Source information: This 390-nucleotide RNA sequence from Arachidicoccus rhizosphaerae belongs to the Rfam family "Bacterial RNase P class A". Rfam classes the family as a ribozyme.
RNA sequence: CUAUUGACCCGCGCUAUCGCGGCCGGUACCCUUAAAAAGUACGGUCGAGGAAAGUCCGGACAGCAUAGAGCAGCUUACCGGUGAAAUGCCGGGGAUUCUUGAUAAAAGAAUCACAGCCAGCACCACAGAAAAUAACCGCCUUAUGGCCUAAGUGGCCUGAGGUAAGGGUGAAAAUGUACGGUAAGAGCGUACGGGAGAGGCUAGUAAUAGCGUCUUUGGGUAAGCCUUAAGCGCUGCAAUGUCACAUAUAGUCGGGGUUGAAAGCGGCUCGUUUGAUGUCCUGUUUACAGGGCAACCCGAUGGGGUAGGCAGCUACAUCAAAACAGUAAUGUUUUGGGCAGAUAAAUGAUAGUGUAGAAACAGAAUCCGGCUUACGAGGUUGAUAGCAUU
Numbered sequence: 001c002u003a004u005u006g007a008c009c010c011g012c013g014c015u016a017u018c019g020c021g022g023c024c025g026g027u028a029c030c031c032u033u034a035a036a037a038a039g040u041a042c043g044g045u046c047g048a049g050g051a052a053a054g055u056c057c058g059g060a061c062a063g064c065a066u067a068g069a070g071c072a073g074c075u076u077a078c079c080g081g082u083g084a085a086a087u088g089c090c091g092g093g094g095a096u097u098c099u100u101g102a103u104a105a106a107a108g109a110a111u112c113a114c115a116g117c118c119a120g121c122a123c124c125a126c127a128g129a130a131a132a133u134a135a136c137c138g139c140c141u142u143a144u145g146g147c148c149u150a151a152g153u154g155g156c157c158u159g160a161g162g163u164a165a166g167g168g169u170g171a172a173a174a175u176g177u178a179c180g181g182u183a184a185g186a187g188c189g190u191a192c193g194g195g196a197g198a199g200g201c202u203a204g205u206a207a208u209a210g211c212g213u214c215u216u217u218g219g220g221u222a223a224g225c226c227u228u229a230a231g232c233g234c235u236g237c238a239a240u241g242u243c244a245c246a247u248a249u250a251g252u253c254g255g256g257g258u259u260g261a262a263a264g265c266g267g268c269u270c271g272u273u274u275g276a277u278g279u280c281c282u283g284u285u286u287a288c289a290g291g292g293c294a295a296c297c298c299g300a301u302g303g304g305g306u307a308g309g310c311a312g313c314u315a316c317a318u319c320a321a322a323a324c325a326g327u328a329a330u331g332u333u334u335u336g337g338g339c340a341g342a343u344a345a346a347u348g349a350u351a352g353u354g355u356a357g358a359a360a361c362a363g364a365a366u367c368c369g370g371c372u373u374a375c376g377a378g379g380u381u382g383a384u385a386g387c388a389u390u
Base pairs, nucleotide, nucleotide: 001386002385003384004383005382006381007380008379009378011375012354013353014352015351016350017349018348020047021046022045023044024043025042052373053372054371056370057369058368059367060366061236062235063234064233070288073232074231075230076229077228078092079091080090081089082088093114094112095111096110097109098108099107100106115227116226120225121224122221123220124219136167137166138163139162140161141160142159143158145156175193176192177191178190179189180188195216196215197214198213200211201210202209203208240311241310242309243308251301252300253299254298255297282294283293284292285291318337319336320335321334322333323332324331325330